The record is a 130-nucleotide RNA sequence from Pristionchus pacificus, which matches "Nematode snoRNA ceN39" in Rfam. By type it is an H/ACA-box small nucleolar RNA. The organism belongs to Pristionchus, within Eukaryota. The literature on the family includes a 2007 paper in BMC Mol Biol by Jia et al., "Systematic identification of non-coding RNA 2,2,7-trimethylguanosine cap structures in Caenorhabditis elegans".

RNA sequence: UAGGCGCCUAGGAACCACUCAAUAUAUGUAUAUUACGUGGGCCGAAAAUCGCCAACAUUAAAAAUAUCGAAUAAUGGUCGUUCGUUCACUUCCUCCUAGUGAUCGGGCAUUACCAAUUUGAAAUACAUUU
Numbered sequence: 001u002a003g004g005c006g007c008c009u010a011g012g013a014a015c016c017a018c019u020c021a022a023u024a025u026a027u028g029u030a031u032a033u034u035a036c037g038u039g040g041g042c043c044g045a046a047a048a049u050c051g052c053c054a055a056c057a058u059u060a061a062a063a064a065u066a067u068c069g070a071a072u073a074a075u076g077g078u079c080g081u082u083c084g085u086u087c088a089c090u091u092c093c094u095c096c097u098a099g100u101g102a103u104c105g106g107g108c109a110u111u112a113c114c115a116a117u118u119u120g121a122a123a124u125a126c127a128u129u130u
Stems, first nucleotide, its partner, number of pairs: 003053004011043002015040004021034005067121006076114003080108002083105002086102005